[Rfam]
RNA sequence: AUACAUUCGCAGACGAAGAGAGUAUGUAUAAACGGAAGCAGCAGCGAGCCGGGGGUGGUGGAAGCCCGGUGGUUCAUUUAUACAGAAACGCACUUCUGAGAAGAUCGGUGAACAAGUAGCCGGUUCCGGGAGCACCCGUUAUCAGUUUCGAGUUGGUCUAUGAUUAUAGACAAUGAGAGUGGCACCGCGGAUGGUUAAAACCAGAAUCCGUCUCUUAC
Numbered sequence: 001a002u003a004c005a006u007u008c009g010c011a012g013a014c015g016a017a018g019a020g021a022g023u024a025u026g027u028a029u030a031a032a033c034g035g036a037a038g039c040a041g042c043a044g045c046g047a048g049c050c051g052g053g054g055g056u057g058g059u060g061g062a063a064g065c066c067c068g069g070u071g072g073u074u075c076a077u078u079u080a081u082a083c084a085g086a087a088a089c090g091c092a093c094u095u096c097u098g099a100g101a102a103g104a105u106c107g108g109u110g111a112a113c114a115a116g117u118a119g120c121c122g123g124u125u126c127c128g129g130g131a132g133c134a135c136c137c138g139u140u141a142u143c144a145g146u147u148u149c150g151a152g153u154u155g156g157u158c159u160a161u162g163a164u165u166a167u168a169g170a171c172a173a174u175g176a177g178a179g180u181g182g183c184a185c186c187g188c189g190g191a192u193g194g195u196u197a198a199a200a201c202c203a204g205a206a207u208c209c210g211u212c213u214c215u216u217a218c
Stems, first nucleotide, its partner, number of pairs: 007101002015096004025084006037073001039071001048070006103125007127138003156171006176215004187211005
T-box leader: a 218-nucleotide RNA sequence from Halobacillus halophilus. The family's RNA type in Rfam is cis-regulatory leader. Lineage of the source: Bacteria > Bacilli > Bacillaceae > Halobacillus > Halobacillus halophilus. From the family's description: Uncharged tRNA acts as the effector for transcription antitermination of genes in the T-box leader family. T-boxes are found upstream of many aminoacyl-tRNA synthetase genes and some amino acid biosynthetic genes usually in Gram-positive bacteria. The anticodon of a specific tRNA base pairs to a specifier sequence within the T-box motif, and the NCCA acceptor tail of the tRNA base pairs to a conserved bulge in the T-box antiterminator hairpin.